[Rfam]
RNA sequence: CCUUCAGUGAUGAGUGACCUGAUGACUUUCGUUCUUCUGAGUUUGCUGAAGCAACUGCCAAUCUCCUGAGAAGG
Numbered sequence: 001c002c003u004u005c006a007g008u009g010a011u012g013a014g015u016g017a018c019c020u021g022a023u024g025a026c027u028u029u030c031g032u033u034c035u036u037c038u039g040a041g042u043u044u045g046c047u048g049a050a051g052c053a054a055c056u057g058c059c060a061a062u063c064u065c066c067u068g069a070g071a072a073g074g
Base pairs, nucleotide, nucleotide: 001074002073003072005070

Shown here is a 74-nucleotide RNA from Pelodiscus sinensis, a member of the family "Small nucleolar RNA SNORD59". NCBI's taxonomy places the organism under Eukaryota, Chordata, Vertebrata, Trionychia, Pelodiscus. Rfam 15.1 lists 1,355 matches to the family in 620 species. Rfam classes the family as a C/D-box small nucleolar RNA. Its Rfam clan is "SNORD59 clan".